A member of the RNA family "Small nucleolar RNA Z43" from Acer yangbiense, 101 nucleotides long. A reference for the family is Chen et al. (2003), "The high diversity of snoRNAs in plants: identification and comparative study of 120 snoRNA genes from Oryza sativa", Nucleic Acids Res. The family's RNA type in Rfam is C/D-box small nucleolar RNA. The source organism's lineage runs through Eukaryota, Streptophyta, Spermatophyta, malvids and Acer. The match comes from Rfam's covariance-model search (100 bits). Rfam links the family to the GO terms RNA processing and nucleolus.
RNA sequence: GGACUGUGACGAUUAUAUCUUGGUCUCGUUCGUCGUAAUUGGCUAAUUUAUUAUUAGCCUUGCCGACCAUUCUGAUAUAUCACCACCCAUAUUCUGAGUCC
Numbered sequence: 001g002g003a004c005u006g007u008g009a010c011g012a013u014u015a016u017a018u019c020u021u022g023g024u025c026u027c028g029u030u031c032g033u034c035g036u037a038a039u040u041g042g043c044u045a046a047u048u049u050a051u052u053a054u055u056a057g058c059c060u061u062g063c064c065g066a067c068c069a070u071u072c073u074g075a076u077a078u079a080u081c082a083c084c085a086c087c088c089a090u091a092u093u094c095u096g097a098g099u100c101c
Stems, first nucleotide, its partner, number of pairs: 001101004045061002047056001